[Rfam]
RNA sequence: CGUCGCGGAAGCUCAUGCGUAGGUGCGUUCUAGCGGACCGGUCCUCCUCGGAGCCGGUCAAAAGUGGCACAUGGAGAAGGUCUGGGGAUGUUCUGCAGCGUGCCCGAAAGGGGCGUCCUGUCAAGCGCGGGACCCGGCUUACAUGAAAUGAAAGGUGGGCGCGUGCCCACUUCUCUCACCUGACGCGUCCGCACGAGACGGUGCGCGCGCGCGUGGCUGCGCUGCGCACCGGAUGCGCCCCGCGCCGGGUGCCGAUUGGAACAUGGGUCGGUUGGACACCUUCCACCACAGUUCGAUGCGUGAGAAGUGCGGGUUUGUGCACCUGCACGGCCCGCGCUCAACUCAAUCCAGACUACUCUUCGCGGCG
Number, nucleotide and partner (000 for none) at each position: 001c367002g366003u365004c364005g000006c000007g361008g360009a359010a000011g000012c304013u303014c302015a301016u300017g299018c298019g000020u000021a000022g072023g070024u069025g068026c000027g000028u000029u000030c000031u000032a000033g000034c000035g000036g059037a058038c057039c056040g055041g054042u000043c000044c000045u000046c000047c000048u000049c000050g000051g000052a000053g000054c041055c040056g039057g038058u037059c036060a000061a000062a000063a000064g000065u000066g000067g000068c025069a024070c023071a000072u022073g000074g000075a000076g000077a000078a000079g000080g000081u000082c351083u350084g349085g348086g347087g000088a000089u000090g277091u276092u275093c274094u000095g000096c000097a000098g000099c000100g000101u115102g114103c113104c112105c111106g000107a000108a000109a000110g000111g105112g104113g103114c102115g101116u132117c131118c130119u129120g128121u127122c000123a000124a000125g000126c000127g121128c120129g119130g118131g117132a116133c000134c271135c270136g269137g268138c267139u266140u265141a000142c000143a000144u000145g000146a000147a000148a000149u000150g000151a000152a000153a000154g000155g000156u000157g000158g000159g000160c000161g000162c000163g000164u000165g000166c000167c000168c000169a000170c000171u000172u000173c000174u000175c000176u000177c000178a000179c000180c000181u000182g000183a000184c000185g000186c000187g000188u000189c000190c000191g000192c000193a000194c000195g000196a000197g000198a000199c000200g000201g000202u000203g000204c000205g000206c000207g000208c000209g000210c000211g000212c000213g000214u000215g000216g000217c000218u000219g000220c000221g000222c000223u000224g000225c000226g000227c000228a000229c000230c000231g000232g000233a000234u000235g000236c000237g000238c000239c000240c000241c000242g000243c000244g000245c000246c000247g000248g000249g000250u000251g000252c000253c000254g000255a000256u000257u000258g000259g000260a000261a000262c000263a000264u000265g140266g139267g138268u137269c136270g135271g134272u000273u000274g093275g092276a091277c090278a000279c000280c000281u000282u000283c000284c000285a000286c000287c000288a000289c000290a000291g000292u000293u000294c000295g000296a000297u000298g018299c017300g016301u015302g014303a013304g012305a000306a338307g337308u336309g335310c334311g333312g332313g331314u330315u329316u000317g000318u000319g000320c000321a000322c000323c000324u000325g000326c000327a000328c000329g315330g314331c313332c312333c311334g310335c309336g308337c307338u306339c000340a000341a000342c000343u000344c000345a000346a000347u086348c085349c084350a083351g082352a000353c000354u000355a000356c000357u000358c000359u009360u008361c007362g000363c000364g004365g003366c002367g001
Source information:
Rfam assigns this 367-nucleotide RNA sequence from Gracilariopsis chorda to the family "Nuclear RNase P". By type it is a ribozyme.